[Rfam]
RNA sequence: CACUUCUCAAUGAGCUCCUUCCUGCCGAAAAGCCGUGGCAGCCUAUGGAUUCGCACGAGAAGGACAUGAACAGCUCAGUACUGGCACACUCACAGCGUGCUUCCAUCAGUUGUGAUUAGCCACUACUGUUCUACAAGU
Numbered sequence: 001c002a003c004u005u006c007u008c009a010a011u012g013a014g015c016u017c018c019u020u021c022c023u024g025c026c027g028a029a030a031a032g033c034c035g036u037g038g039c040a041g042c043c044u045a046u047g048g049a050u051u052c053g054c055a056c057g058a059g060a061a062g063g064a065c066a067u068g069a070a071c072a073g074c075u076c077a078g079u080a081c082u083g084g085c086a087c088a089c090u091c092a093c094a095g096c097g098u099g100c101u102u103c104c105a106u107c108a109g110u111u112g113u114g115a116u117u118a119g120c121c122a123c124u125a126c127u128g129u130u131c132u133a134c135a136a137g138u
Base pairs, nucleotide, nucleotide: 003062004061005060006059007058008057014054015053016049017048018047022041023040024039025038026037073131076128077127078126093112094111095110096109098108099107
RNA: Small nucleolar RNA SNORA75
Organism: Callipepla squamata